Shown here is a 110-nucleotide RNA sequence from Sarcophilus harrisii, a member of the family "Small nucleolar RNA U6-53/MBII-28". Gene Ontology terms of the family: nucleolus and RNA processing. The family has 25 seed sequences and 780 matches in Rfam 15.1. Rfam classes the family as a C/D-box small nucleolar RNA. The pairing is the family consensus, mapped onto this sequence.

RNA sequence: CCUCUAUGAUGAAUUGCCAUGCUAAUACUGAAGCACUAGGUAGGGCAGUGAUGCUCUGCACUGGGUGCUACUGAGUUAAACUUCACUUCUCUUGUAAACAUCUGAGGGGC
Number, nucleotide and partner (000 for none) at each position: 001c109002c108003u107004c106005u000006a000007u000008g000009a000010u000011g000012a000013a000014u000015u000016g000017c000018c000019a000020u000021g000022c000023u000024a000025a000026u000027a000028c000029u000030g000031a000032a000033g000034c000035a000036c000037u000038a000039g000040g000041u058042a057043g056044g055045g054046c000047a000048g000049u000050g000051a000052u000053g000054c045055u044056c043057u042058g041059c000060a000061c000062u000063g000064g000065g000066u000067g000068c000069u000070a000071c000072u000073g000074a000075g000076u000077u000078a000079a000080a000081c000082u000083u000084c000085a000086c000087u000088u000089c000090u000091c000092u000093u000094g000095u000096a000097a000098a000099c000100a000101u000102c000103u000104g000105a000106g004107g003108g002109g001110c000